[Rfam]
RNA sequence: CACCGACAUCAAUGAUUCGUUCUGCGAACCGGCGCCGACCGCCAGAUAGGCGUUCAUGCCCAGCUCUUUCAUCUGCUGCUCGCCGAUCACGCGGGUGGUGACGUUGGUGCUGAAGGCGUCCGCCAGUUGGCGCGCCUGCGAGGCCAGAUAGCCGGCGUUACAGAUGUUCGGCGGCAUAUUGCCGAGAUCUUUCGC
Numbered sequence: 001c002a003c004c005g006a007c008a009u010c011a012a013u014g015a016u017u018c019g020u021u022c023u024g025c026g027a028a029c030c031g032g033c034g035c036c037g038a039c040c041g042c043c044a045g046a047u048a049g050g051c052g053u054u055c056a057u058g059c060c061c062a063g064c065u066c067u068u069u070c071a072u073c074u075g076c077u078g079c080u081c082g083c084c085g086a087u088c089a090c091g092c093g094g095g096u097g098g099u100g101a102c103g104u105u106g107g108u109g110c111u112g113a114a115g116g117c118g119u120c121c122g123c124c125a126g127u128u129g130g131c132g133c134g135c136c137u138g139c140g141a142g143g144c145c146a147g148a149u150a151g152c153c154g155g156c157g158u159u160a161c162a163g164a165u166g167u168u169c170g171g172c173g174g175c176a177u178a179u180u181g182c183c184g185a186g187a188u189c190u191u192u193c194g195c
Stems, first nucleotide, its partner, number of pairs: 005189002013031002016028005034042002050059002062077003078135002081132007091123007099112002102109002136163003140159002143156003167186006
Rfam assigns this 195-nucleotide sequence from Serratia marcescens to the family "Yersinia sRNA 276".
The literature on the family includes a 2015 paper in PLoS Genet by Nuss et al., "Transcriptomic profiling of Yersinia pseudotuberculosis reveals reprogramming of the Crp regulon by temperature and uncovers Crp as a master regulator of small RNAs".
The organism belongs to Serratia marcescens, within Bacteria.
Rfam classes the family as an antisense RNA.